[Rfam]
RNA: Makes More Granules Regulator RNA (mmgR)
Organism: Pontivivens nitratireducens
RNA sequence: CGUUGUCGCCCUUCUUGGGCGUUUCCUCCCUAGACUUGGGCCGUGUCUUCGGACACGGCCUCUUUUUUUGGCGCG
Dot-bracket structure: .......((((.....))))..................(((((((((....)))))))))...............